[Rfam]
RNA: BsrG
Organism: Paenibacillus cellulosilyticus
RNA sequence: GUACAUAUACGGCUGCAAGGGCGGUCGGCACAACCUCUCGGAAGGGAGGUGAUGCCAUGGAAGUAUACCAAGCAUUGAUGCUAAUGAUUUCAUUCGCUUCAUUGGUUGUGGCUAUGCUUUCAUUCCAUAAACGGAAAUAGACCGCCCCCUGCAAGGUAACGGUCUAUUUCCUAUGACUAUUCCGAUUGCCGACCGCCUUUGAAGCGGAAGUGUACCAGGGCGUCGAUGUUCCAGCAUCGACG
Number, nucleotide and partner (000 for none) at each position: 001g215002u214003a000004c212005a211006u210007a000008u208009a000010c191011g190012g189013c188014u153015g152016c151017a150018a000019g148020g147021g146022c000023g143024g142025u141026c140027g000028g000029c000030a000031c051032a050033a000034c049035c048036u047037c046038u045039c000040g000041g000042a000043a000044g000045g038046g037047a036048g035049g034050u032051g031052a000053u000054g000055c000056c000057a000058u000059g121060g120061a119062a118063g117064u116065a115066u000067a000068c000069c000070a000071a000072g000073c086074a085075u000076u000077g000078a000079u000080g000081c000082u000083a000084a000085u074086g073087a000088u000089u000090u000091c000092a000093u000094u000095c000096g112097c111098u110099u000100c000101a000102u000103u000104g000105g000106u000107u000108g000109u000110g098111g097112c096113u000114a000115u065116g064117c063118u062119u061120u060121c059122a000123u000124u000125c000126c000127a000128u000129a000130a000131a000132c000133g000134g000135a000136a000137a000138u000139a000140g026141a025142c024143c023144g000145c000146c021147c020148c019149c000150u017151g016152c015153a014154a000155g000156g000157u000158a000159a000160c000161g178162g177163u176164c000165u000166a000167u000168u000169u000170c000171c000172u000173a000174u000175g000176a163177c162178u161179a000180u000181u000182c000183c000184g000185a000186u000187u000188g013189c012190c011191g010192a000193c207194c206195g205196c204197c000198u000199u000200u000201g000202a000203a000204g196205c195206g194207g193208a008209a000210g006211u005212g004213u000214a002215c001216c000217a000218g000219g000220g000221c242222g241223u240224c239225g238226a237227u236228g235229u234230u000231c000232c000233a000234g229235c228236a227237u226238c225239g224240a223241c222242g221